[Rfam]
RNA sequence: UUCGGGGUAGGAAAUAAAGCGUUAAGUGCUGGAAGGACGGAAUGUGUUUUCCAGACGAAAGGAAUCAUCCUGCGAUUUUAUUUUCGCAUUCGCCGCA
Numbered sequence: 001u002u003c004g005g006g007g008u009a010g011g012a013a014a015u016a017a018a019g020c021g022u023u024a025a026g027u028g029c030u031g032g033a034a035g036g037a038c039g040g041a042a043u044g045u046g047u048u049u050u051c052c053a054g055a056c057g058a059a060a061g062g063a064a065u066c067a068u069c070c071u072g073c074g075a076u077u078u079u080a081u082u083u084u085c086g087c088a089u090u091c092g093c094c095g096c097a
Base pairs, nucleotide, nucleotide: 001097003095004094005093010085011084012083013082014081015080016079017078018077019076020074021073022072026056027055029054030053031052032051033050034049035048036047040091041090042089043088044087060071061070062069063068
RNA: THF (Tetrahydrofolate) riboswitch aptamer
Organism: Liquorilactobacillus vini